Group II catalytic intron D1-D4-6: a 234-nucleotide RNA from Acidiferrobacter sp. SPIII_3. The match comes from Rfam's covariance-model search (134 bits). A reference for the family is Chu et al. (2001), "Control of branch-site choice by a group II intron", EMBO J. The pairing is the family consensus, mapped onto this sequence. Rfam 15.1 lists 1,617 matches to the family in 661 species.
RNA sequence: AAAUUCCCGCCCCGGAAAGGGGAAAGAGCCACCCCACCGGGAAUCGAGUCUUGGGCUCAUGAAGGUAACGACAUGAGUUAAGCGUAGACAGAGCGAUGUCCAGGCCGUAACGCAAGUGAAGCGAUGGAGCCUCGUUAUACAUCCGGAGGCCGACAGGGUCGAAAACCUGGAAGGCAAUAGUAGGUGACCGCUAAAGGCGAUGGUCGCUGGAGACUCCGGCGGGGUCUGAGAGCA
Dot-bracket structure: ...........((((...((((......[..)))).))))...((..((((((((((((((..(....)..))))))))...)).)))).))..................................(.((((((........(((((((((..((((........))))...))).....(.((((((((......]...))))))))...).)))))))))))))........
Numbered sequence: 001a002a003a004u005u006c007c008c009g010c011c012c013c014g015g016a017a018a019g020g021g022g023a024a025a026g027a028g029c030c031a032c033c034c035c036a037c038c039g040g041g042a043a044u045c046g047a048g049u050c051u052u053g054g055g056c057u058c059a060u061g062a063a064g065g066u067a068a069c070g071a072c073a074u075g076a077g078u079u080a081a082g083c084g085u086a087g088a089c090a091g092a093g094c095g096a097u098g099u100c101c102a103g104g105c106c107g108u109a110a111c112g113c114a115a116g117u118g119a120a121g122c123g124a125u126g127g128a129g130c131c132u133c134g135u136u137a138u139a140c141a142u143c144c145g146g147a148g149g150c151c152g153a154c155a156g157g158g159u160c161g162a163a164a165a166c167c168u169g170g171a172a173g174g175c176a177a178u179a180g181u182a183g184g185u186g187a188c189c190g191c192u193a194a195a196g197g198c199g200a201u202g203g204u205c206g207c208u209g210g211a212g213a214c215u216c217c218g219g220c221g222g223g224g225u226c227u228g229a230g231a232g233c234a
Stems, first nucleotide, its partner, number of pairs: 012040004019035004029197001044092002048089004052084002054079008064069001127226001129225006143219006149175003154169004181212001183208008